[Rfam]
RNA sequence: AGCUUUGCACAGGGGCAGUAUGGUAGUGAAUGAGGUUAAUCCGAGGCGUGAUUUUUGCUCAUUGAAAACUUUUAUUUUACCGAGUGCCCUGUCAUUUAUCUCCGGGGUGACUCUCCACGUUCUCCUGGACAUUUAUCUCUAAUUCCUGGAGACUCCAGGUCGAUCCUGGAG
Numbered sequence: 001a002g003c004u005u006u007g008c009a010c011a012g013g014g015g016c017a018g019u020a021u022g023g024u025a026g027u028g029a030a031u032g033a034g035g036u037u038a039a040u041c042c043g044a045g046g047c048g049u050g051a052u053u054u055u056u057g058c059u060c061a062u063u064g065a066a067a068a069c070u071u072u073u074a075u076u077u078u079a080c081c082g083a084g085u086g087c088c089c090u091g092u093c094a095u096u097u098a099u100c101u102c103c104g105g106g107g108u109g110a111c112u113c114u115c116c117a118c119g120u121u122c123u124c125c126u127g128g129a130c131a132u133u134u135a136u137c138u139c140u141a142a143u144u145c146c147u148g149g150a151g152a153c154u155c156c157a158g159g160u161c162g163a164u165c166c167u168g169g170a171g
Base pairs, nucleotide, nucleotide: 020052021051023049024048026047027046034042035041091139094136095135098132099131101129102128103127104126105125106124107123153171154170155169156168157167158166159165
U4 spliceosomal RNA: a 171-nucleotide RNA sequence from Alligator sinensis. Gene Ontology terms of the family: spliceosomal tri-snRNP complex assembly and U4 snRNP. NCBI's taxonomy places the organism under Eukaryota, Teleostomi, Tetrapoda, Sauropsida, Alligator. About the family: U4 small nuclear RNA (U4 snRNA) is a component of the major U2-dependent spliceosome. Rfam classes the family as a spliceosomal small nuclear RNA.